[Rfam]
RNA sequence: GGUUGGGCGACUUUGUCGCUUUCAAGAAUUUGCUUCUUGGGUGGGGGGCC
Numbered sequence: 001g002g003u004u005g006g007g008c009g010a011c012u013u014u015g016u017c018g019c020u021u022u023c024a025a026g027a028a029u030u031u032g033c034u035u036c037u038u039g040g041g042u043g044g045g046g047g048g049c050c
Base pairs, nucleotide, nucleotide: 003025004024005023006020007019008018009017010016032049033048034047035046036045037044
Shown here is a 50-nucleotide sequence, a member of the family "Na+ riboswitch aptamer (DUF1646)". It is one of the family's seed sequences. For this family Rfam cites "Na(+) riboswitches regulate genes for diverse physiological processes in bacteria" (White et al., Nat Chem Biol, 2022).